Background
The family of this 102-nucleotide RNA from Serpentinicella alkaliphila is "Purine riboswitch aptamer". The family's consensus secondary structure is taken from published work. Riboswitches are metabolite binding domains within certain messenger RNAs that serve as precision sensors for their corresponding targets. Taxonomically the source falls in Serpentinicella (Bacteria, Bacillati, Clostridia, Peptostreptococcales).

[Rfam]
RNA sequence: AUUAAAUAUCGAAAAGAAACUCAUAUAAUGUCGAAAAUAAGGUUCGACAGUCUCUACAGGAUGACCGUAAAUCAUUCUUCUAUGAGUGAAAGUGUAUCUAGG
Numbered sequence: 001a002u003u004a005a006a007u008a009u010c011g012a013a014a015a016g017a018a019a020c021u022c023a024u025a026u027a028a029u030g031u032c033g034a035a036a037a038u039a040a041g042g043u044u045c046g047a048c049a050g051u052c053u054c055u056a057c058a059g060g061a062u063g064a065c066c067g068u069a070a071a072u073c074a075u076u077c078u079u080c081u082a083u084g085a086g087u088g089a090a091a092g093u094g095u096a097u098c099u100a101g102g
Stems, first nucleotide, its partner, number of pairs: 019087007029049007058078007